[Rfam]
RNA sequence: CAAGUAUGAAAACUGCUAUUUUCCGUUUCUUUUUUUACUUUAGCGCCUGAACUCAGGAGGCUUUGCGCGUAAGAAAAGAAACGAAAAGUAGCGCUUAAGCCUCCCUUGUGGAGGCUUUUUUAUU
Numbered sequence: 001c002a003a004g005u006a007u008g009a010a011a012a013c014u015g016c017u018a019u020u021u022u023c024c025g026u027u028u029c030u031u032u033u034u035u036u037a038c039u040u041u042a043g044c045g046c047c048u049g050a051a052c053u054c055a056g057g058a059g060g061c062u063u064u065g066c067g068c069g070u071a072a073g074a075a076a077a078g079a080a081a082c083g084a085a086a087a088g089u090a091g092c093g094c095u096u097a098a099g100c101c102u103c104c105c106u107u108g109u110g111g112a113g114g115c116u117u118u119u120u121u122a123u124u
Base pairs, nucleotide, nucleotide: 015092016091017090018089020087021086022085024083025082026081027080028079029078030077031076032075033074035072036071037070038069041055056066058064059063097117098116099115100114101113102112103111104110
Rfam assigns this 124-nucleotide RNA sequence from Lonsdalea quercina to the family "Phenylalanine leader peptide". Rfam 15.1 lists 379 matches to the family in 290 species. The organism belongs to Lonsdalea, within Bacteria. The base pairs follow the family's consensus structure, which was predicted with CMfinder. A reference for the family is Zurawski et al. (1978), "Nucleotide sequence of the leader region of the phenylalanine operon of Escherichia coli", Proc Natl Acad Sci U S A.